This 83-nucleotide RNA from Candidatus Burkholderia verschuerenii belongs to the Rfam family "Burkholderia sRNA 16 (Bc_KC_sr1)". The base pairs follow the family's consensus structure, which was predicted with RNAfold. Rfam describes the family as follows. Identified by RNA-seq, RACE and Northern blot. Strongly expressed in biofilm. Also know as Bc_KC_sr1. Upregulated in response to iron ion depletion. Predicted targets include cysteine desulfurase and isochorismatase desulfurase. The match comes from Rfam's covariance-model search (82 bits).
RNA sequence: GUAGGCGCGCGGCGACGCCGCGGCCUGCCAUUCUCCUCUUGUCGUUGUUGCUCCGGGGCUUAAUUGAGCCCCGGUUUUUUUUU
Numbered sequence: 001g002u003a004g005g006c007g008c009g010c011g012g013c014g015a016c017g018c019c020g021c022g023g024c025c026u027g028c029c030a031u032u033c034u035c036c037u038c039u040u041g042u043c044g045u046u047g048u049u050g051c052u053c054c055g056g057g058g059c060u061u062a063a064u065u066g067a068g069c070c071c072c073g074g075u076u077u078u079u080u081u082u083u
Stems, first nucleotide, its partner, number of pairs: 001028006009021005053074007